[Rfam]
RNA sequence: AAAUAGAGUAGAGGUUGCGUGAAGCAUGAGUAAGCUGCCGGAUGUUCCAGAGACAGAGGAUGGCAGCCAAAAGGGCGGACGCCGAAGACAAAUGCAGGCUGGCUGUAUCUGUCUGGGCGCAGGGUGAAGAACUCUGUGACUGUCAUCCGUAGCCGGGUGGAGUGCUUUUGGUCGG
Numbered sequence: 001a002a003a004u005a006g007a008g009u010a011g012a013g014g015u016u017g018c019g020u021g022a023a024g025c026a027u028g029a030g031u032a033a034g035c036u037g038c039c040g041g042a043u044g045u046u047c048c049a050g051a052g053a054c055a056g057a058g059g060a061u062g063g064c065a066g067c068c069a070a071a072a073g074g075g076c077g078g079a080c081g082c083c084g085a086a087g088a089c090a091a092a093u094g095c096a097g098g099c100u101g102g103c104u105g106u107a108u109c110u111g112u113c114u115g116g117g118c119g120c121a122g123g124g125u126g127a128a129g130a131a132c133u134c135u136g137u138g139a140c141u142g143u144c145a146u147c148c149g150u151a152g153c154c155g156g157g158u159g160g161a162g163u164g165c166u167u168u169u170g171g172u173c174g175g
Base pairs, nucleotide, nucleotide: 007169008168010166011165017082018081019080020079024076025075034067035066036065037064038063039062040061086114087113088112089111090110092108093107094106095105096104097103115141116140118138119137120136121135122134123133124132125131143160144159145158146157147156148155149154
Lysine riboswitch aptamer: a 175-nucleotide RNA from bacterium D16-54.